[Rfam]
RNA: Bacteroidales small SRP
RNA sequence: UGCGCUGGGGUAAGUCUUGUACGACCAGCUCCCUCUGAAUCCCCCAGGACGGGAACGUAGCAAGGGUAAGAGGUUGUAGCGGUGCGAUUCAAGUAGCUUACCCCACU
Numbered sequence: 001u002g003c004g005c006u007g008g009g010g011u012a013a014g015u016c017u018u019g020u021a022c023g024a025c026c027a028g029c030u031c032c033c034u035c036u037g038a039a040u041c042c043c044c045c046a047g048g049a050c051g052g053g054a055a056c057g058u059a060g061c062a063a064g065g066g067u068a069a070g071a072g073g074u075u076g077u078a079g080c081g082g083u084g085c086g087a088u089u090c091a092a093g094u095a096g097c098u099u100a101c102c103c104c105a106c107u
Base pairs, nucleotide, nucleotide: 008103009102010101011100012099013098014097015096017092018091019090021088022086023085024083025082